[Rfam]
RNA: MIR1520 microRNA precursor family
Organism: Glycine soja
RNA sequence: UUCUUAUUAAAUGAUGACUGUUAUGUGUCAUAUUCUGAUUGGUCAAUGAAAACAACAAUGUAUUUCAUCUUUCAUGGAAUUUAUAUCUAAUCAGAAUAUGACAUGUGACAGUCAUCAUCC
Numbered sequence: 001u002u003c004u005u006a007u008u009a010a011a012u013g014a015u016g017a018c019u020g021u022u023a024u025g026u027g028u029c030a031u032a033u034u035c036u037g038a039u040u041g042g043u044c045a046a047u048g049a050a051a052a053c054a055a056c057a058a059u060g061u062a063u064u065u066c067a068u069c070u071u072u073c074a075u076g077g078a079a080u081u082u083a084u085a086u087c088u089a090a091u092c093a094g095a096a097u098a099u100g101a102c103a104u105g106u107g108a109c110a111g112u113c114a115u116c117a118u119c120c
Stems, first nucleotide, its partner, number of pairs: 020109004025104002029100003033096004038091005